Source information: This 77-nucleotide sequence from Solanum tuberosum belongs to the Rfam family "MIR8024 microRNA precursor family".

RNA sequence: UUGAAGAAUUUGAAGACUUCAACUUGCAGACUUGAAGAAUUUGAAGACUUCAACUAGAGGAUUUAAAGACUUCAACU
Number, nucleotide and partner (000 for none) at each position: 001u075002u074003g073004a072005a071006g070007a000008a000009u067010u066011u065012g064013a063014a062015g000016a000017c059018u058019u057020c000021a000022a000023c000024u000025u000026g000027c000028a000029g000030a000031c000032u053033u052034g051035a050036a049037g048038a000039a000040u000041u000042u000043g000044a000045a000046g000047a000048c037049u036050u035051c034052a033053a032054c000055u000056a000057g019058a018059g017060g000061a000062u014063u013064u012065a011066a010067a009068g000069a000070c006071u005072u004073c003074a002075a001076c000077u000
Rfam 15.1 lists 661 matches to the family in 8 species. It scores 60 bits against the family's covariance model. The source organism's lineage runs through Eukaryota, Streptophytina, Magnoliopsida, Mesangiospermae and Solanum.